[Rfam]
RNA sequence: AGCAAUCUCCUUUGUAUUGAGUUGGAACGUUUGUCUACGAUUGCCGCUAGGGGCGCUGUUCCAACUGCAUACAAAUUUGAGUUA
Numbered sequence: 001a002g003c004a005a006u007c008u009c010c011u012u013u014g015u016a017u018u019g020a021g022u023u024g025g026a027a028c029g030u031u032u033g034u035c036u037a038c039g040a041u042u043g044c045c046g047c048u049a050g051g052g053g054c055g056c057u058g059u060u061c062c063a064a065c066u067g068c069a070u071a072c073a074a075a076u077u078u079g080a081g082u083u084a
Base pairs, nucleotide, nucleotide: 011075012074013073014072015071016070020066021065022064023063024062025061026060027059028058029057034052035051036050039047
Shown here is an 84-nucleotide sequence from Bombyx mori, a member of the family "mir-2807 microRNA precursor family". For this family Rfam cites "MicroRNAs of Bombyx mori identified by Solexa sequencing" (Liu et al., BMC Genomics, 2010). Rfam links the family to the GO terms miRNA-mediated post-transcriptional gene silencing and RISC complex.